[Rfam]
RNA sequence: GCCGAGCUCGGUAGCGAGAGCUUGUAACCCUAGCGGGGGCGAUGGGUGGUUCGGACGUUUGGUAACGCCCGUGGGUCUGGGUACAGCUGGGGCGUAUGGCCGGCCCGCCCGUUCCAAGUUGGGUAGUUGAGAUGUUGCGGCUUGGGCGAAGGUCGAAGCCGCCUCUCUCCUAAAGUGGUUGGGGACCGCGUGAGGCUGGCUUCACAGAGCAGCGAAUACCUCCCGCUCUCAACGGUGGAAGGACAACGGGCCGCCGCUCCAUGUACCCUCCACGGCCCACUGGCAUACCAUUGGCGGACAACCGCCUUU
Number, nucleotide and partner (000 for none) at each position: 001g040002c039003c038004g023005a022006g021007c020008u019009c018010g000011g000012u000013a000014g000015c000016g000017a000018g009019a008020g007021c006022u005023u004024g000025u000026a000027a000028c037029c036030c035031u000032a000033g000034c000035g030036g029037g028038g003039g002040c001041g000042a309043u000044g307045g306046g305047u304048g303049g302050u301051u300052c000053g299054g000055a000056c296057g295058u293059u000060u000061g289062g288063u287064a286065a000066c000067g000068c283069c282070c000071g280072u279073g278074g277075g276076u275077c274078u000079g268080g267081g266082u265083a264084c263085a262086g000087c000088u000089g000090g259091g258092g257093c000094g000095u000096a000097u000098g000099g000100c000101c253102g252103g251104c250105c249106c248107g247108c000109c242110c241111g000112u240113u239114c238115c237116a236117a000118g233119u232120u231121g230122g229123g228124u000125a227126g226127u225128u000129g169130a168131g167132a166133u000134g164135u000136u000137g162138c161139g160140g159141c158142u157143u156144g000145g154146g153147c152148g000149a000150a000151g000152g147153u146154c145155g000156a143157a142158g141159c140160c139161g138162c137163c000164u134165c000166u132167c131168u130169c129170c175171u000172a000173a000174a000175g170176u000177g223178g222179u000180u000181g220182g219183g000184g000185a000186c000187c000188g000189c214190g213191u212192g000193a000194g000195g000196c207197u206198g205199g000200c000201u000202u000203c000204a000205c198206a197207g196208a000209g000210c000211a000212g191213c190214g189215a000216a000217u000218a000219c182220c181221u000222c178223c177224c000225g127226c126227u125228c123229u122230c121231a120232a119233c118234g000235g000236u116237g115238g114239a113240a112241g110242g109243a000244c000245a000246a000247c107248g106249g105250g104251c103252c102253g101254c000255c000256g000257c092258u091259c090260c000261a000262u085263g084264u083265a082266c081267c080268c079269u000270c000271c000272a000273c000274g077275g076276c075277c074278c073279a072280c071281u000282g069283g068284c000285a000286u064287a063288c062289c061290a000291u000292u000293g058294g000295c057296g056297g000298a000299c053300a051301a050302c049303c048304g047305c046306c045307u044308u000309u042
RNA: Plant signal recognition particle RNA